[Rfam]
RNA sequence: UCGGCCCCGGUUCACGCACCCGCAUCCCGCGGGGGCGACCCGGAGCC
Numbered sequence: 001u002c003g004g005c006c007c008c009g010g011u012u013c014a015c016g017c018a019c020c021c022g023c024a025u026c027c028c029g030c031g032g033g034g035g036c037g038a039c040c041c042g043g044a045g046c047c
Stems, first nucleotide, its partner, number of pairs: 003047003007043004015037003019033005